[Rfam]
RNA: Flavo-1 RNA
RNA sequence: UUGUAGCCUCGGUUGCAGCGGCAUCCUUUUGCGUAACGAAGUGGAGUAAAAGAUACAGCGGAAAACGGGUGGGGUC
Numbered sequence: 001u002u003g004u005a006g007c008c009u010c011g012g013u014u015g016c017a018g019c020g021g022c023a024u025c026c027u028u029u030u031g032c033g034u035a036a037c038g039a040a041g042u043g044g045a046g047u048a049a050a051a052g053a054u055a056c057a058g059c060g061g062a063a064a065a066c067g068g069g070u071g072g073g074g075u076c
Stems, first nucleotide, its partner, number of pairs: 009068003013064002018059002023054003029049004034044001036042001
Dot-bracket structure: ........(((.((...((...(((...((((.(.(.....).).))))..)))...))...)).)))........